This 261-nucleotide part of an RNA from uncultured marine crenarchaeote SAT1000-49-D2 belongs to the Rfam family "Archaeal large subunit ribosomal RNA". The sequence is in the family's curated seed alignment. Gene Ontology terms of the family: ribosome and structural constituent of ribosome.
[Rfam]
RNA sequence: GGCUGUCUGAGGGGAAGUUGCUCUCAGUACGAGAGGAACAGAGCAACGUGGCCACUGGUCUACCGGUUGUCUGAUAAGGCAGGCCGGGCAGCUAAGCCGUUUGGAUUAAGUGCUGAAAGCAUCUAAGCACGAAACCCAUCCCGAGACAAGACAGCCUUUCGUAAGAUGAAGGUUCGCAGAAGAAGACUGCGUUGAUAGGAUGGAUGUGUAGAUCACAAGCUUCGGCGAGUGAUGAGCAUGCCAUUACUAAUAGACCAACAC
Numbered sequence: 001g002g003c004u005g006u007c008u009g010a011g012g013g014g015a016a017g018u019u020g021c022u023c024u025c026a027g028u029a030c031g032a033g034a035g036g037a038a039c040a041g042a043g044c045a046a047c048g049u050g051g052c053c054a055c056u057g058g059u060c061u062a063c064c065g066g067u068u069g070u071c072u073g074a075u076a077a078g079g080c081a082g083g084c085c086g087g088g089c090a091g092c093u094a095a096g097c098c099g100u101u102u103g104g105a106u107u108a109a110g111u112g113c114u115g116a117a118a119g120c121a122u123c124u125a126a127g128c129a130c131g132a133a134a135c136c137c138a139u140c141c142c143g144a145g146a147c148a149a150g151a152c153a154g155c156c157u158u159u160c161g162u163a164a165g166a167u168g169a170a171g172g173u174u175c176g177c178a179g180a181a182g183a184a185g186a187c188u189g190c191g192u193u194g195a196u197a198g199g200a201u202g203g204a205u206g207u208g209u210a211g212a213u214c215a216c217a218a219g220c221u222u223c224g225g226c227g228a229g230u231g232a233u234g235a236g237c238a239u240g241c242c243a244u245u246a247c248u249a250a251u252a253g254a255c256c257a258a259c260a261c
Stems, first nucleotide, its partner, number of pairs: 001156008011142004017047008048100005056094003063087005068081005103137002110130005171256004175191005196249003199245005204239003209234001212233005219226001